[Rfam]
RNA sequence: AAGAGUAAAAAAUAAAAAAAAUGAAACUAAUACUUACUAAUAGCUGGUGGAGCCUACUUACGUCAAACGUCGUGAGCGGUCCUUGCUAUAAGUAUAGUUGAUAACAUAACUUUACCUAUUAUAAAAAAGGCUUGUC
Numbered sequence: 001a002a003g004a005g006u007a008a009a010a011a012a013u014a015a016a017a018a019a020a021a022u023g024a025a026a027c028u029a030a031u032a033c034u035u036a037c038u039a040a041u042a043g044c045u046g047g048u049g050g051a052g053c054c055u056a057c058u059u060a061c062g063u064c065a066a067a068c069g070u071c072g073u074g075a076g077c078g079g080u081c082c083u084u085g086c087u088a089u090a091a092g093u094a095u096a097g098u099u100g101a102u103a104a105c106a107u108a109a110c111u112u113u114a115c116c117u118a119u120u121a122u123a124a125a126a127a128a129g130g131c132u133u134g135u136c
Stems, first nucleotide, its partner, number of pairs: 033097002037092002040089005046083002049080001055076001057074001058072001060070003
RNA: Bacteroidete tryptophan peptide leader RNA